[Rfam]
RNA sequence: ACAGCAAGCCAUUCUAUCGCGCUUUGCUACGGCAAAGUGAGGAAAGUCCGGGCAGCAAAGGGCACUGUGCUUCCUAACCGAAAGAUCUCCGUGAGGGGAUGAAAGUGCAGAAGAAAAUAACCGCCCCGAUUCGUCGGGGUAAGGGUGAGAAGGUGAGGUAAGAGCUCACCAGGGCUGUAGGCAACUACAGUUGCUGUGCACUCCGCAGGCUGUAAAACCAUGUAAACCAACGCCCGAGGGCGGCCCGCCCGAUGUUGGAGGGUAGGUUGCUAGAGAUUGUCAGCGAUGGCAAUCCCAGAUAAAUGAUAGAAACUCCUGCUCUGCAGGAUGACAGAACCCGGCUUACAGGCUUGCUGUUUAG
Numbered sequence: 001a002c003a004g005c006a007a008g009c010c011a012u013u014c015u016a017u018c019g020c021g022c023u024u025u026g027c028u029a030c031g032g033c034a035a036a037g038u039g040a041g042g043a044a045a046g047u048c049c050g051g052g053c054a055g056c057a058a059a060g061g062g063c064a065c066u067g068u069g070c071u072u073c074c075u076a077a078c079c080g081a082a083a084g085a086u087c088u089c090c091g092u093g094a095g096g097g098g099a100u101g102a103a104a105g106u107g108c109a110g111a112a113g114a115a116a117a118u119a120a121c122c123g124c125c126c127c128g129a130u131u132c133g134u135c136g137g138g139g140u141a142a143g144g145g146u147g148a149g150a151a152g153g154u155g156a157g158g159u160a161a162g163a164g165c166u167c168a169c170c171a172g173g174g175c176u177g178u179a180g181g182c183a184a185c186u187a188c189a190g191u192u193g194c195u196g197u198g199c200a201c202u203c204c205g206c207a208g209g210c211u212g213u214a215a216a217a218c219c220a221u222g223u224a225a226a227c228c229a230a231c232g233c234c235c236g237a238g239g240g241c242g243g244c245c246c247g248c249c250c251g252a253u254g255u256u257g258g259a260g261g262g263u264a265g266g267u268u269g270c271u272a273g274a275g276a277u278u279g280u281c282a283g284c285g286a287u288g289g290c291a292a293u294c295c296c297a298g299a300u301a302a303a304u305g306a307u308a309g310a311a312a313c314u315c316c317u318g319c320u321c322u323g324c325a326g327g328a329u330g331a332c333a334g335a336a337c338c339c340g341g342c343u344u345a346c347a348g349g350c351u352u353g354c355u356g357u358u359u360a361g
Stems, first nucleotide, its partner, number of pairs: 001357010012311007020039008044344003048341005053212004060246004065208005070084003074080001085100001087098004101203002105201005121144002123140007152170006172194001173192008216268004227258005238250004275294008